Shown here is a 69-nucleotide sequence from Rhipicephalus sanguineus, a member of the family "Selenocysteine insertion sequence 1".
The match comes from Rfam's covariance-model search (40 bits).
Rfam describes the family as follows. The incorporation of selenocysteine into a protein sequence is directed by an in-frame UGA codon (usually a stop codon) within the coding region of the mRNA. Selenoprotein mRNAs contain a conserved secondary structure in the 3' UTR that is required for the distinction of UGA stop from UGA selenocysteine. The selenocysteine insertion sequence (SECIS) is around 60 nt in length and adopts a hairpin structure which is sufficiently well-defined and conserved to act as a computational screen for selenoprotein genes.
For this family Rfam cites "A novel RNA structural motif in the selenocysteine insertion element of eukaryotic selenoprotein mRNAs" (Walczak et al., RNA, 1996).
RNA sequence: GAGACCUUAUGAUGGGCAAUCUACAAACCGUCACUUGCGGCUGGCUUGCCCUGAUGUUUUUCCAGUCUC
Numbered sequence: 001g002a003g004a005c006c007u008u009a010u011g012a013u014g015g016g017c018a019a020u021c022u023a024c025a026a027a028c029c030g031u032c033a034c035u036u037g038c039g040g041c042u043g044g045c046u047u048g049c050c051c052u053g054a055u056g057u058u059u060u061u062c063c064a065g066u067c068u069c
Stems, first nucleotide, its partner, number of pairs: 001069005014051006021044003029039003